[Rfam]
Nucleotides: 091
Base pairs, nucleotide, nucleotide: 017063018062019061020060021053029044030043031041032040033039065084066083067082068081069080070079071078072077
Number, partner (000 for none) and nucleotide at each position: 001000c002000c003000c004000a005000g006000a007000g008000g009000u010000a011000u012000u013000a014000a015000u016000g017063g018062g019061u020060g021053a022000c023000a024000a025000g026000u027000g028000g029044a030043u031041g032040u033039g034000a035000u036000g037000u038000u039033c040032a041031c042000c043030a044029u045000g046000a047000a048000c049000c050000a051000u052000a053021u054000u055000u056000a057000u058000u059000u060020c061019a062018c063017c064000a065084a066083c067082c068081u069080a070079c071078g072077c073000g074000g075000a076000u077072g078071c079070g080069u081068a082067g083066g084065u085000u086000u087000u088000u089000u090000u091000u